[Rfam]
RNA: tRNA
Organism: Hydrogenobacter thermophilus
RNA sequence: GGGCGAUUAGCUCAGAGGUAGAGCGCCAUCCUCACACGAUGGAGGUCGGAGGUUCAAGUCCUCCAUCGCCCA
Numbered sequence: 001g002g003g004c005g006a007u008u009a010g011c012u013c014a015g016a017g018g019u020a021g022a023g024c025g026c027c028a029u030c031c032u033c034a035c036a037c038g039a040u041g042g043a044g045g046u047c048g049g050a051g052g053u054u055c056a057a058g059u060c061c062u063c064c065a066u067c068g069c070c071c072a
Stems, first nucleotide, its partner, number of pairs: 001071007010024004026042005048064005